[Rfam]
Description
This 134-nucleotide sequence from Castor canadensis belongs to the Rfam family "Small Cajal body specific RNA 21". Its family is annotated with Cajal body, nucleolus and RNA processing in the Gene Ontology. It is annotated as a small Cajal body RNA. scaRNAs are a specific class of small nuclear RNAs which localise to the Cajal bodies and guide the modification of RNA polymerase II transcribed spliceosomal RNAs U1, U2, U4, U5 and U12. ACA68 (SCARNA21) is a member of the H/ACA class of snoRNAs that guide the sites of modification of uridines to pseudouridines. This snoRNA was identified by computational screening and its expression in mouse experimentally verified by Northern blot and primer extension analysis. A search with the family's covariance model found it, with a score of 95 bits. The base pairs follow the family's consensus structure, which was predicted with RNAalifold.

RNA sequence: UGGCUCAGUUUCCUGGAAGUAGGCUCAGCCUACUGGCCUCCCCUCAGCUGAGCCUAGAGAGAGGGGCCAGGUGUUCACCUGUGUGGGAGAGGUGUUUAGGAAAGCCUUGCCCAGGUUAUCCUAGCCUCACCUUU
Numbered sequence: 001u002g003g004c005u006c007a008g009u010u011u012c013c014u015g016g017a018a019g020u021a022g023g024c025u026c027a028g029c030c031u032a033c034u035g036g037c038c039u040c041c042c043c044u045c046a047g048c049u050g051a052g053c054c055u056a057g058a059g060a061g062a063g064g065g066g067c068c069a070g071g072u073g074u075u076c077a078c079c080u081g082u083g084u085g086g087g088a089g090a091g092g093u094g095u096u097u098a099g100g101a102a103a104g105c106c107u108u109g110c111c112c113a114g115g116u117u118a119u120c121c122u123a124g125c126c127u128c129a130c131c132u133u134u
Stems, first nucleotide, its partner, number of pairs: 002054006015042002018039002020036001023034001063128005069122003075115002085107003